Shown here is a 138-nucleotide sequence from Cavia porcellus, a member of the family "U4 spliceosomal RNA". Rfam links the family to the GO terms U4 snRNP and spliceosomal tri-snRNP complex assembly. It scores 59 bits against the family's covariance model.
RNA sequence: AUCAUUGCAUAGGGGCAGUAUUGUAGUCAGUGAGGUUUUUCUGAGGCGUAAUUACUGUUAAUUGAAAAUUUUUCUUCAGAAGUUUGUUAUAUACAGAAAUGGAGUUAAAACUGAAAUAUUACAUUUAGACACCUGUUU
Dot-bracket structure: ...................(((((.(((.....((.....))..))))))))...............................(((((.((..(.(...).)...)).)).)))............((((....))))

Overview: The family's consensus secondary structure is taken from published work. By type it is a spliceosomal small nuclear RNA.